[Rfam]
About this RNA:
A member of the RNA family "Enterobacterial sRNA STnc380" from Citrobacter youngae, 108 nucleotides long. It is one of the family's seed sequences.
Nucleotides: 108
Base pairs, nucleotide, nucleotide: 008058009057012054022048023047026042027041028040029039030038031037032036072098073097074096075095076094077093078092081089082088083087
Number, partner (000 for none) and nucleotide at each position: 001000u002000g003000a004000g005000a006000g007000g008058g009057u010000a011000u012054u013000c014000g015000g016000a017000u018000c019000u020000u021000g022048c023047u024000g025000g026042a027041a028040u029039u030038g031037g032036u033000a034000g035000g036032g037031c038030c039029a040028a041027u042026u043000a044000c045000a046000a047023g048022g049000a050000c051000a052000g053000g054012a055000c056000a057009a058008c059000a060000a061000c062000a063000g064000a065000a066000a067000g068000u069000a070000a071000a072098a073097g074096g075095g076094c077093a078092a079000c080000a081089g082088u083087a084000c085000a086000a087083u088082a089081c090000c091000a092078u093077u094076g095075c096074c097073c098072u099000g100000g101000a102000c103000g104000a105000a106000g107000a108000g